This 69-nucleotide sequence from Chinchilla lanigera belongs to the Rfam family "mir-8/mir-141/mir-200 microRNA precursor family". Lineage of the source: Eukaryota > Opisthokonta > Metazoa > Dipnotetrapodomorpha > Chinchilla. The match comes from Rfam's covariance-model search (58 bits). Clan: mir-8 microRNA precursor clan. The literature on the family includes a 2001 paper in Science by Lagos-Quintana et al., "Identification of novel genes coding for small expressed RNAs".
RNA sequence: GCCCUCGUCUUACCCCGCAGUGUUUGGGUGCUGGUUGGGUCUCUAAUACUGCCGGGUAAUGAUGGAGGC
Numbered sequence: 001g002c003c004c005u006c007g008u009c010u011u012a013c014c015c016c017g018c019a020g021u022g023u024u025u026g027g028g029u030g031c032u033g034g035u036u037g038g039g040u041c042u043c044u045a046a047u048a049c050u051g052c053c054g055g056g057u058a059a060u061g062a063u064g065g066a067g068g069c
Stems, first nucleotide, its partner, number of pairs: 002068002005065005010059006017052006024046005